[Rfam]
RNA: Plastid-atpF group II-D1 intron
Organism: Spinacia oleracea
RNA sequence: UACAAAUUUUUCGAUAUAUUAUACUCAUGUCGAUAAAAUUAUUGGAAUCUCUU
Numbered sequence: 001u002a003c004a005a006a007u008u009u010u011u012c013g014a015u016a017u018a019u020u021a022u023a024c025u026c027a028u029g030u031c032g033a034u035a036a037a038a039u040u041a042u043u044g045g046a047a048u049c050u051c052u053u
Stems, first nucleotide, its partner, number of pairs: 011033007
Dot-bracket structure: ..........(((((((.........)))))))....................